[Rfam]
RNA sequence: GGGGACCUUCGGGGCCCUAAAAGACCGGGCCGGAAAUCCAGCCCGAAACAUAGCGGGGGCACACCCCCGCAUUGCUAAACGGAAGACAGAAA
Numbered sequence: 001g002g003g004g005a006c007c008u009u010c011g012g013g014g015c016c017c018u019a020a021a022a023g024a025c026c027g028g029g030c031c032g033g034a035a036a037u038c039c040a041g042c043c044c045g046a047a048a049c050a051u052a053g054c055g056g057g058g059g060c061a062c063a064c065c066c067c068c069g070c071a072u073u074g075c076u077a078a079a080c081g082g083a084a085g086a087c088a089g090a091a092a
Stems, first nucleotide, its partner, number of pairs: 001018004006014003027068003
RNA: L2-Alphaproteobacteria ribosomal protein leader